[Rfam]
RNA sequence: CCCCCUGGCGACCAUGGCUGUAGACUGUUACCAAGGUGCCGUCGCUACAGUAACAAUCUAAAGCCACGGUCACCAUGGAGAC
Number, nucleotide and partner (000 for none) at each position: 001c000002c000003c000004c000005c000006u000007g000008g000009c000010g000011a000012c069013c068014a000015u066016g065017g064018c063019u000020g000021u000022a000023g058024a057025c000026u055027g054028u053029u052030a051031c050032c000033a000034a000035g000036g000037u000038g000039c000040c000041g000042u000043c000044g000045c000046u000047a000048c000049a000050g031051u030052a029053a028054c027055a026056a000057u024058c023059u000060a000061a000062a000063g018064c017065c016066a015067c000068g013069g012070u000071c000072a000073c000074c000075a000076u000077g000078g000079a000080g000081a000082c000

A member of the RNA family "mir-132 microRNA precursor family" from Conger conger, 82 nucleotides long.
The literature on the family includes a 2005 paper in Genes Dev by Chen et al., "The developmental miRNA profiles of zebrafish as determined by small RNA cloning".
The organism belongs to Conger, within Eukaryota.
Rfam links the family to the GO terms RISC complex and miRNA-mediated post-transcriptional gene silencing.